This 143-nucleotide RNA from Vanilla planifolia belongs to the Rfam family "small nucleolar RNA snoR135". The source organism's lineage runs through Eukaryota, Streptophyta, Liliopsida, Vanilleae and Vanilla. The family's RNA type in Rfam is H/ACA-box small nucleolar RNA. A search with the family's covariance model found it, with a score of 92 bits. The family has 6 seed sequences and 837 matches in Rfam 15.1.
RNA sequence: AUCGCAAGAUUGUGUGUAUCGGCUGAUUGCCUGCUCGGAAUGCAGUUUUGCCGAAAGUGUUUCUUGCAAAAUUGACUAGGGAAAAUGGGCAGUUAGGUUUUGCUUGUUCAAUGCGAAACAUAACAAUCAUUUUCCCCAUAUUA
Numbered sequence: 001a002u003c004g005c006a007a008g009a010u011u012g013u014g015u016g017u018a019u020c021g022g023c024u025g026a027u028u029g030c031c032u033g034c035u036c037g038g039a040a041u042g043c044a045g046u047u048u049u050g051c052c053g054a055a056a057g058u059g060u061u062u063c064u065u066g067c068a069a070a071a072u073u074g075a076c077u078a079g080g081g082a083a084a085a086u087g088g089g090c091a092g093u094u095a096g097g098u099u100u101u102g103c104u105u106g107u108u109c110a111a112u113g114c115g116a117a118a119c120a121u122a123a124c125a126a127u128c129a130u131u132u133u134c135c136c137c138a139u140a141u142u143a
Base pairs, nucleotide, nucleotide: 004067005066006065007064008063009061015044016043017042018041019040079136080135081134082133083132084131085130086129087128088127092124093123094122095121